Notes
The family of this 69-nucleotide sequence from Corythaeola cristata is "int-alpA RNA". Rfam classes the family as a small RNA. Lineage of the source: Eukaryota > Chordata > Gnathostomata > Teleostomi > Corythaeola. The family's consensus secondary structure is taken from published work. About the family: Acidobacteria (1 example), Planctomycetes (1 example), Proteobacteria.
RNA sequence: GCUAAGCCUAGCUCGACGGAGCGAAAGUCGGAUACCCAAUCCGAUUGGCUUAGCUCCUAACUGGAUAUG
Numbered sequence: 001g002c003u004a005a006g007c008c009u010a011g012c013u014c015g016a017c018g019g020a021g022c023g024a025a026a027g028u029c030g031g032a033u034a035c036c037c038a039a040u041c042c043g044a045u046u047g048g049c050u051u052a053g054c055u056c057c058u059a060a061c062u063g064g065a066u067a068u069g
Base pairs, nucleotide, nucleotide: 001054002053003052004051005050006049007048008047011022012021013020014019028044029043030042031041036069